Record summary
mir-27 microRNA precursor family: a 64-nucleotide RNA sequence from Salmo salar. The sequence is in the family's curated seed alignment.

RNA sequence: AGGACUUAGCCAGCUUUGUGAACAGAUCUGUGAAAGCCCAUGUUCACAGUGGCUAAGUUCCGCU
Numbered sequence: 001a002g003g004a005c006u007u008a009g010c011c012a013g014c015u016u017u018g019u020g021a022a023c024a025g026a027u028c029u030g031u032g033a034a035a036g037c038c039c040a041u042g043u044u045c046a047c048a049g050u051g052g053c054u055a056a057g058u059u060c061c062g063c064u
Base pairs, nucleotide, nucleotide: 002060003059004058005057006056007055008054009053010052011051018047019046020045021044022043023042024041